[Rfam]
RNA sequence: UUUGCCUUCGAAUAACUGGAUGUGGAAAUUUGAGAUCACAUCCGGUUCAGACAAGGGCAUAGAAUAAAUUUACGAGGGGAAUGGUGUUGGGAUUUAUUUCUUCACCUCCCUCUUGAAUCUAUGUUGGUGGAAAGGAAUGAUUU
Dot-bracket structure: ..((((((.....((((((((.(((..........))).))))))))......))))))..........((.....(((.(....((.(((.......)))..)).))))........(......)....)....).......
This 143-nucleotide RNA from Papaver somniferum belongs to the Rfam family "Small nucleolar RNA snoR138".
The family's RNA type in Rfam is H/ACA-box small nucleolar RNA.
A reference for the family is Chen and Wu (2009), "Mining small RNA sequencing data: a new approach to identify small nucleolar RNAs in Arabidopsis", Nucleic Acids Res.
The family's consensus secondary structure was predicted with mfold.
Rfam links the family to the GO terms nucleolus and RNA processing.
Taxonomically the source falls in Papaver (Eukaryota, Tracheophyta, Euphyllophyta, Papaveraceae).
It scores 53 bits against the family's covariance model.